[Rfam]
RNA sequence: AACAAAAUGAUAAAAAUUGUUUAAACUCUAAAUCUCUUAUGUGAAAAUCAUGUUCUGGGUCUUCAAAGUUAUCUGAUUGCU
Numbered sequence: 001a002a003c004a005a006a007a008u009g010a011u012a013a014a015a016a017u018u019g020u021u022u023a024a025a026c027u028c029u030a031a032a033u034c035u036c037u038u039a040u041g042u043g044a045a046a047a048u049c050a051u052g053u054u055c056u057g058g059g060u061c062u063u064c065a066a067a068g069u070u071a072u073c074u075g076a077u078u079g080c081u
Base pairs, nucleotide, nucleotide: 001081003079004078005077
Source information:
The family of this 81-nucleotide sequence from Hibiscus trionum is "Small nucleolar RNA R160". Rfam classes the family as a C/D-box small nucleolar RNA. For this family Rfam cites "The high diversity of snoRNAs in plants: identification and comparative study of 120 snoRNA genes from Oryza sativa" (Chen et al., Nucleic Acids Res, 2003). snoR160 is a C/D box small nucleolar RNA, which acts as a methylation guide for 25S ribosomal RNA in plants. snoR160 has been alternatively named snoZ270 in rice. Pairs were carried over by alignment from the consensus structure. Gene Ontology terms of the family: RNA processing and nucleolus.